[Rfam]
RNA sequence: UCACACCCAGAGUGACAACAUGUCACACAUAUCCGUCGUAGUGGCCCACAGGCCAGGUAGACGUUUCAAGCAAUCACAUUUGCACCUCGUAAAGCUACACCUGGGGAGGUUUGAGAAACGGU
Numbered sequence: 001u002c003a004c005a006c007c008c009a010g011a012g013u014g015a016c017a018a019c020a021u022g023u024c025a026c027a028c029a030u031a032u033c034c035g036u037c038g039u040a041g042u043g044g045c046c047c048a049c050a051g052g053c054c055a056g057g058u059a060g061a062c063g064u065u066u067c068a069a070g071c072a073a074u075c076a077c078a079u080u081u082g083c084a085c086c087u088c089g090u091a092a093a094g095c096u097a098c099a100c101c102u103g104g105g106g107a108g109g110u111u112u113g114a115g116a117a118a119c120g121g122u
Base pairs, nucleotide, nucleotide: 006105007104008103009102010101035100036099038098039097040096041095042055043054044053045052046051061122062120063119064118065117066116067115070083071082072081073080084110085109086108087107088106
The family of this 122-nucleotide sequence is "EGFOA RNA". Rfam's curators put it in the seed alignment. It is annotated as a small RNA.